Shown here is an 88-nucleotide RNA from Metschnikowia pulcherrima, a member of the family "tRNA". The organism belongs to Metschnikowia, within Eukaryota. A search with the family's covariance model found it, with a score of 46 bits. Rfam links the family to the GO term triplet codon-amino acid adaptor activity. The family's RNA type in Rfam is transfer RNA.

[Rfam]
RNA sequence: GGUCCCUUGGCCCAGUUGGUUAAGGCGUGGUGCUAAUACGAUAUCGUUAUAAACGCCAAGAUCAGCAGUUCGAUCCUGCUAGGGACCA
Number, nucleotide and partner (000 for none) at each position: 001g087002g086003u085004c084005c083006c082007u081008u000009g000010g026011c025012c024013c000014a000015g000016u000017u000018g000019g000020u000021u000022a000023a000024g012025g011026c010027g000028u058029g057030g056031u055032g054033c000034u000035a000036a000037u000038a000039c000040g000041a000042u000043a000044u000045c000046g000047u000048u000049a000050u000051a000052a000053a000054c032055g031056c030057c029058a028059a000060g000061a000062u000063c000064a080065g079066c078067a077068g076069u000070u000071c000072g000073a000074u000075c000076c068077u067078g066079c065080u064081a007082g006083g005084g004085a003086c002087c001088a000